[Rfam]
Rfam assigns this 124-nucleotide RNA from Drosophila navojoa to the family "mir-998 microRNA precursor family". The source organism's lineage runs through Eukaryota, Pancrustacea, Pterygota, Schizophora and mojavensis species complex. A search with the family's covariance model found it, with a score of 80 bits. Rfam 15.1 lists 83 matches to the family in 63 species.

RNA sequence: AAAAUUCAUUUUGGAACUGAAUUCUCGUGGGUCUGCAGUGCACUGUAACCGUUGCAGAGGGCAAUUGCUCAAUUUGAAAUUGAAAUUUUGUAGCACCAUGAGAUUCAGCUCUGGCGUGAGUUUC
Number, nucleotide and partner (000 for none) at each position: 001a000002a000003a122004a121005u120006u119007c118008a000009u116010u000011u114012u113013g112014g111015a110016a000017c108018u107019g106020a000021a000022u000023u103024c102025u101026c100027g099028u098029g097030g096031g000032u000033c093034u092035g091036c090037a089038g000039u000040g000041c000042a000043c000044u000045g000046u000047a000048a000049c000050c000051g000052u000053u000054g000055c000056a000057g000058a000059g000060g000061g000062c000063a000064a000065u000066u000067g000068c000069u000070c000071a000072a000073u000074u000075u000076g000077a000078a000079a000080u000081u000082g000083a000084a000085a000086u000087u000088u000089u037090g036091u035092a034093g033094c000095a000096c030097c029098a028099u027100g026101a025102g024103a023104u000105u000106c019107a018108g017109c000110u015111c014112u013113g012114g011115c000116g009117u000118g007119a006120g005121u004122u003123u000124c000